[Rfam]
RNA sequence: CGUCGCUGUCGACUCUUAACAGGGCCGACAGACCAGAGUUCCCAGGCUCUGGACCGAAGAAUAGAUAGCGCUGGCGCCCCAACUUAGGCACCAGCCCAACAAGAAAUUUCGGAUGUACGCGCAUCUCAGGGUGAGAUGUGAAAUACC
Numbered sequence: 001c002g003u004c005g006c007u008g009u010c011g012a013c014u015c016u017u018a019a020c021a022g023g024g025c026c027g028a029c030a031g032a033c034c035a036g037a038g039u040u041c042c043c044a045g046g047c048u049c050u051g052g053a054c055c056g057a058a059g060a061a062u063a064g065a066u067a068g069c070g071c072u073g074g075c076g077c078c079c080c081a082a083c084u085u086a087g088g089c090a091c092c093a094g095c096c097c098a099a100c101a102a103g104a105a106a107u108u109u110c111g112g113a114u115g116u117a118c119g120c121g122c123a124u125c126u127c128a129g130g131g132u133g134a135g136a137u138g139u140g141a142a143a144u145a146c147c
Stems, first nucleotide, its partner, number of pairs: 006031006013024004033052007120140008
RNA: proV RNA
Organism: Pseudomonas taeanensis